[Rfam]
RNA sequence: UUAGUUGGAAGCUGGCACGUACUGUGCAUUGUUCUAAUCAAGAGAUAUUCAUACAAGCAAGCCACGCAAGUGCAACACCCUUACAUAAAGUGCAACUGUCAACGGCGACAGGGCACUACCUGACUGAUCAGGAACCGGACAAAGGCGUCCUACCGCGAGAGCGGUGGGACGCC
Numbered sequence: 001u002u003a004g005u006u007g008g009a010a011g012c013u014g015g016c017a018c019g020u021a022c023u024g025u026g027c028a029u030u031g032u033u034c035u036a037a038u039c040a041a042g043a044g045a046u047a048u049u050c051a052u053a054c055a056a057g058c059a060a061g062c063c064a065c066g067c068a069a070g071u072g073c074a075a076c077a078c079c080c081u082u083a084c085a086u087a088a089a090g091u092g093c094a095a096c097u098g099u100c101a102a103c104g105g106c107g108a109c110a111g112g113g114c115a116c117u118a119c120c121u122g123a124c125u126g127a128u129c130a131g132g133a134a135c136c137g138g139a140c141a142a143a144g145g146c147g148u149c150c151u152a153c154c155g156c157g158a159g160a161g162c163g164g165u166g167g168g169a170c171g172c173c
Stems, first nucleotide, its partner, number of pairs: 013141002015073003090116004096111002099108002119132004144173007152165005